[Rfam]
The family of this 68-nucleotide RNA sequence from Bombyx mori is "mir-2774 microRNA precursor family". Gene Ontology terms of the family: RISC complex and miRNA-mediated post-transcriptional gene silencing. It scores 74 bits against the family's covariance model.
RNA sequence: ACAACACUCGGACCGUCGGUCUAUCAAGCAAUAUCACCCGCUCGGUGGAAGAUAUUUCCUUUCGUCCU
Numbered sequence: 001a002c003a004a005c006a007c008u009c010g011g012a013c014c015g016u017c018g019g020u021c022u023a024u025c026a027a028g029c030a031a032u033a034u035c036a037c038c039c040g041c042u043c044g045g046u047g048g049a050a051g052a053u054a055u056u057u058c059c060u061u062u063c064g065u066c067c068u
Stems, first nucleotide, its partner, number of pairs: 004065002010059003015053003020049006027042003
Lineage of the source: Eukaryota > Metazoa > Eumetazoa > Eumetabola > Bombyx.